[Rfam]
A member of the RNA family "Ribosomal protein L10 leader" from Streptococcus merionis, 136 nucleotides long. The match comes from Rfam's covariance-model search (85 bits). By type it is a cis-regulatory leader. Taxonomically the source falls in Streptococcus (Bacteria, Bacillati, Bacilli, Streptococcaceae). This family is a putative r-protein leader autoregulatory structure found in B. subtilis and other low-GC Gram-positive bacteria. Pairs were carried over by alignment from the consensus structure, which was predicted with CMfinder.

RNA sequence: GAAGUUUGAAAAAACUGACCUAAGACAGCAGGGGGAGUCCAUCCAUAAACAUCCUGCCGAGGCACAAAUCGUUAACCAAAGUUAUUAACAUUUGUACUUUCGUGUCUAGGUCUGGGCGCGUUUUUUCUUUGAAAAA
Numbered sequence: 001g002a003a004g005u006u007u008g009a010a011a012a013a014a015c016u017g018a019c020c021u022a023a024g025a026c027a028g029c030a031g032g033g034g035g036a037g038u039c040c041a042u043c044c045a046u047a048a049a050c051a052u053c054c055u056g057c058c059g060a061g062g063c064a065c066a067a068a069u070c071g072u073u074a075a076c077c078a079a080a081g082u083u084a085u086u087a088a089c090a091u092u093u094g095u096a097c098u099u100u101c102g103u104g105u106c107u108a109g110g111u112c113u114g115g116g117c118g119c120g121u122u123u124u125u126u127c128u129u130u131g132a133a134a135a136a
Base pairs, nucleotide, nucleotide: 028057029056030055031054032053033052034044035043036042101120102119103118104117105116106115107114108113